[Rfam]
RNA sequence: CCCGUUGUCAUUGGGGAGUAGCCAUCCUCACCCGCGAGGGCAUCGCGCCUUCGUUCCCCGAGGAAUUCGCGUCAACAGACUUGGAGCGACUCGCUCCAUGGCGUGGAUGGCCGCGCCGCCGCAAGCCGGCGGAGCGCUGCCC
Dot-bracket structure: .........................(((................................))).((((((((((.......(((((.......)))))))))))))))..................................

Rfam assigns this 142-nucleotide sequence from Frateuria terrea to the family "Manganese Mn2+ riboswitch aptamer (yybP-ykoY)". The pairing is the family consensus, mapped onto this sequence. A search with the family's covariance model found it, with a score of 60 bits. Its family is annotated with manganese ion binding in the Gene Ontology. The family has 29 seed sequences and 1,126 matches in Rfam 15.1. Taxonomically the source falls in Frateuria (Bacteria, Gammaproteobacteria, Lysobacterales, Rhodanobacteraceae).